Rfam assigns this 128-nucleotide RNA sequence from Propioniciclava coleopterorum to the family "FMN riboswitch aptamer (RFN element)".
The RFN element is a highly conserved domain that is found frequently in the 5'-untranslated regions of prokaryotic mRNAs that encode for flavin mononucleotide (FMN) biosynthesis and transport proteins.
Nucleotides: 128
Base pairs, nucleotide, nucleotide: 003126004125005124006123007122008121009119010118016028017027018026030107031106032096033095034048035047036046037045043094044093052071053070076092077091078090079089080088098110099109100108
Number, partner (000 for none) and nucleotide at each position: 001000c002000a003126c004125g005124u006123g007122c008121u009119c010118c011000g012000g013000g014000g015000u016028c017027g018026g019000u020000g021000c022000a023000a024000u025000u026018c027017c028016g029000a030107a031106c032096c033095g034048g035047c036046g037045g038000u039000g040000a041000u042000a043094g044093u045037c046036c047035g048034c049000g050000a051000c052071c053070c054000g055000g056000c057000c058000g059000c060000u061000u062000c063000g064000g065000c066000g067000u068000c069000c070053g071052g072000u073000u074000g075000a076092u077091c078090c079089g080088g081000u082000g083000g084000a085000a086000g087000u088080c089079c090078g091077g092076g093044a094043c095033c096032g097000a098110c099109g100108g101000u102000c103000a104000a105000a106031g107030u108100c109099c110098g111000g112000a113000u114000g115000g116000g117000a118010g119009g120000c121008a122007g123006c124005a125004c126003g127000c128000g